Listeria sRNA rli37: a 246-nucleotide RNA sequence from Listeria innocua. The base pairs follow the family's consensus structure, which was predicted with RNAalifold. A reference for the family is Toledo-Arana et al. (2009), "The Listeria transcriptional landscape from saprophytism to virulence", Nature.

[Rfam]
RNA sequence: UUACCUUUAUCUCCAGUCUAUUUUUUUAUAAAUACUAAUGUUAGGGAACGGGUGUGUGGCGCUCGUCAUGAAGAUAAACAAAAUUAUCGAAUAUAUUGUAGUAGCAAUCAUCGUUCUAGUGUGGACUUACUUCAUUGUCAUUAAAGAAAUUCUUCCUAAAAAUAUAGGAUUUAUUUCAUUAGUAAUUCUAUCAAUAGUUCUUUAUUUUAUAGGUAAAAGGUUGAAUGGGAAACAUAGCAGAUAAAA
Numbered sequence: 001u002u003a004c005c006u007u008u009a010u011c012u013c014c015a016g017u018c019u020a021u022u023u024u025u026u027u028a029u030a031a032a033u034a035c036u037a038a039u040g041u042u043a044g045g046g047a048a049c050g051g052g053u054g055u056g057u058g059g060c061g062c063u064c065g066u067c068a069u070g071a072a073g074a075u076a077a078a079c080a081a082a083a084u085u086a087u088c089g090a091a092u093a094u095a096u097u098g099u100a101g102u103a104g105c106a107a108u109c110a111u112c113g114u115u116c117u118a119g120u121g122u123g124g125a126c127u128u129a130c131u132u133c134a135u136u137g138u139c140a141u142u143a144a145a146g147a148a149a150u151u152c153u154u155c156c157u158a159a160a161a162a163u164a165u166a167g168g169a170u171u172u173a174u175u176u177c178a179u180u181a182g183u184a185a186u187u188c189u190a191u192c193a194a195u196a197g198u199u200c201u202u203u204a205u206u207u208u209a210u211a212g213g214u215a216a217a218a219g220g221u222u223g224a225a226u227g228g229g230a231a232a233c234a235u236a237g238c239a240g241a242u243a244a245a246a
Base pairs, nucleotide, nucleotide: 017229018228019227020226021225022224023223026220027219029217033215034214035213036212048066049065050064051063052062054060078210080208081207082206083205084204089200090199091198092197094196095195096194097193098192099190100189101188113126114125115124116123140183141182142181143180144179146177147176148175149174150173155168156167157166158165